A member of the RNA family "Potassium channel RNA editing signal" from Parambassis ranga, 114 nucleotides long. It is annotated as a cis-regulatory element.
RNA sequence: GUGGGCUACGGGGACAUGUGUCCGGUCACCAUCGGGGGGAAGAUCGUGGGCUCCCUGUGCGCCAUCGCCGGCGUGCUGACCAUCGCGCUCCCGGUGCCGGUCAUCGUGUCCAAC
Numbered sequence: 001g002u003g004g005g006c007u008a009c010g011g012g013g014a015c016a017u018g019u020g021u022c023c024g025g026u027c028a029c030c031a032u033c034g035g036g037g038g039g040a041a042g043a044u045c046g047u048g049g050g051c052u053c054c055c056u057g058u059g060c061g062c063c064a065u066c067g068c069c070g071g072c073g074u075g076c077u078g079a080c081c082a083u084c085g086c087g088c089u090c091c092c093g094g095u096g097c098c099g100g101u102c103a104u105c106g107u108g109u110c111c112a113a114c
Base pairs, nucleotide, nucleotide: 001114002113004111005110007108008107009106010105011104013102014101015100018097019096020095021094037077038076040074049063050062051061